[Rfam]
The record is a 105-nucleotide RNA from Aspergillus wentii, which matches "Small nucleolar RNA Z13/snr52" in Rfam. Rfam 15.1 lists 1,203 matches to the family in 866 species. The family's RNA type in Rfam is C/D-box small nucleolar RNA.
RNA sequence: CUUGAUCUUAUGAUGAAAUAUAUUCGGAUGUAAACUCACAGACCUGUUCUGAAUGCGCAAAAUCCUUGUUGAUAUUUCCGUUGCCUUCCUUCUGAUCAUGAUCAA
Numbered sequence: 001c002u003u004g005a006u007c008u009u010a011u012g013a014u015g016a017a018a019u020a021u022a023u024u025c026g027g028a029u030g031u032a033a034a035c036u037c038a039c040a041g042a043c044c045u046g047u048u049c050u051g052a053a054u055g056c057g058c059a060a061a062a063u064c065c066u067u068g069u070u071g072a073u074a075u076u077u078c079c080g081u082u083g084c085c086u087u088c089c090u091u092c093u094g095a096u097c098a099u100g101a102u103c104a105a
Stems, first nucleotide, its partner, number of pairs: 003104003025080004